RNA sequence: UUGCAUCCGGCAGGUCAUACACGACCAGCUCCUGUUGAACUCCCCCAGGACCGGAAGGUAGCAAGGGUAGAUGGUUGAGCGGUGCGAUGUAUUAAGCCUGCCUUUUU
Numbered sequence: 001u002u003g004c005a006u007c008c009g010g011c012a013g014g015u016c017a018u019a020c021a022c023g024a025c026c027a028g029c030u031c032c033u034g035u036u037g038a039a040c041u042c043c044c045c046c047a048g049g050a051c052c053g054g055a056a057g058g059u060a061g062c063a064a065g066g067g068u069a070g071a072u073g074g075u076u077g078a079g080c081g082g083u084g085c086g087a088u089g090u091a092u093u094a095a096g097c098c099u100g101c102c103u104u105u106u107u
Base pairs, nucleotide, nucleotide: 009102010101011100012099013098014097015096017092018091019090020089021088022086023085024083025082
RNA: Bacteroidales small SRP
Organism: Filimonas zeae